[Rfam]
Nucleotides: 120
Base pairs, nucleotide, nucleotide: 002053003052004051005050019048020047021046022045025042027040028039074096075095077093078092079091
Number, partner (000 for none) and nucleotide at each position: 001000u002053u003052g004051c005050a006000g007000c008000c009000a010000g011000u012000u013000a014000a015000g016000c017000c018000g019048a020047u021046u022045g023000u024000g025042c026000g027040c028039u029000u030000u031000u032000c033000c034000c035000c036000a037000u038000c039028a040027g041000g042025g043000u044000c045022u046021a047020g048019u049000g050005u051004g052003c053002a054000a055000c056000g057000c058000c059000u060000g061000c062000a063000a064000a065000c066000a067000g068000u069000a070000c071000a072000u073000g074096c075095a076000g077093c078092c079091u080000g081000u082000u083000g084000u085000c086000c087000g088000u089000g090000u091079g092078g093077g094000a095075u096074g097000c098000u099000c100000a101000a102000a103000g104000g105000g106000a107000c108000c109000c110000u111000g112000a113000a114000g115000a116000c117000a118000g119000c120000c